RNA sequence: UAUUCACACAACUGUAAGUCGCUUUGGAUAAUAGCGUCUGCUAAAUGGCAAACU
Numbered sequence: 001u002a003u004u005c006a007c008a009c010a011a012c013u014g015u016a017a018g019u020c021g022c023u024u025u026g027g028a029u030a031a032u033a034g035c036g037u038c039u040g041c042u043a044a045a046u047g048g049c050a051a052a053c054u
Stems, first nucleotide, its partner, number of pairs: 013043001014041003020036004025031001
Rfam assigns this 54-nucleotide RNA from Oncorhynchus mykiss to the family "UnaL2 LINE 3' element". The base pairs follow the family's consensus structure, which is taken from published work. The literature on the family includes a 2004 paper in RNA by Baba et al., "Solution structure of an RNA stem-loop derived from the 3' conserved region of eel LINE UnaL2". The eel long interspersed element (LINE) UnaL2 and its partner short interspersed element (SINE) share a conserved 3' tail containing a stem-loop that is critical for their retrotransposition. Presumably, the first step of retrotransposition is the recognition of their 3' tails by UnaL2-encoded reverse transcriptase. The family's RNA type in Rfam is cis-regulatory element.